[Rfam]
RNA sequence: UCGGAUAAAGGCAAACCUGGGCGAAAGCCAGGGGCGCAAAGCCACGGGUCUACAGCGAACUUCGCCAUGACAGCCGGGUUGCCCAUA
Number, nucleotide and partner (000 for none) at each position: 001u087002c000003g084004g083005a000006u000007a000008a000009a000010g000011g037012c036013a000014a000015a000016c032017c031018u030019g029020g000021g028022c027023g000024a000025a000026a000027g022028c021029c019030a018031g017032g016033g000034g000035c073036g012037c011038a000039a000040a080041g079042c078043c077044a000045c076046g075047g074048g071049u070050c069051u000052a000053c000054a000055g000056c000057g000058a000059a000060c000061u000062u000063c000064g000065c000066c000067a000068u000069g050070a049071c048072a000073g035074c047075c046076g045077g043078g042079u041080u040081g000082c000083c004084c003085a000086u000087a001
Source information
A member of the RNA family "c-di-GMP-I-GGC riboswitch aptamer" from Paenibacillus oceani, 87 nucleotides long. A search with the family's covariance model found it, with a score of 68 bits. Pairs were carried over by alignment from the consensus structure, which is taken from published work. Lineage of the source: Bacteria > Bacillati > Bacillota > Caryophanales > Paenibacillus.